[Rfam]
RNA sequence: GGUCACGAGUACCAGCGACAAGCCCCGGCUCGCUGGUCAGCAACCCUCCCGCGCGGUGGGGUGCUCCGGGUGAGGACCUGGCACCGACCCUCGGUGCAAGAGCGCAGC
Numbered sequence: 001g002g003u004c005a006c007g008a009g010u011a012c013c014a015g016c017g018a019c020a021a022g023c024c025c026c027g028g029c030u031c032g033c034u035g036g037u038c039a040g041c042a043a044c045c046c047u048c049c050c051g052c053g054c055g056g057u058g059g060g061g062u063g064c065u066c067c068g069g070g071u072g073a074g075g076a077c078c079u080g081g082c083a084c085c086g087a088c089c090c091u092c093g094g095u096g097c098a099a100g101a102g103c104g105c106a107g108c
Stems, first nucleotide, its partner, number of pairs: 001078004009038001011037006021030002039065003044061003048056002081097007
The family of this 108-nucleotide RNA from Flavimobilis soli is "SAM (S-adenosyl methionine) riboswitch aptamer".
Lineage of the source: Bacteria > Bacillati > Actinomycetota > Actinomycetes > Flavimobilis.
It scores 100 bits against the family's covariance model.
The literature on the family includes a 2008 paper in RNA by Weinberg et al., "The aptamer core of SAM-IV riboswitches mimics the ligand-binding site of SAM-I riboswitches".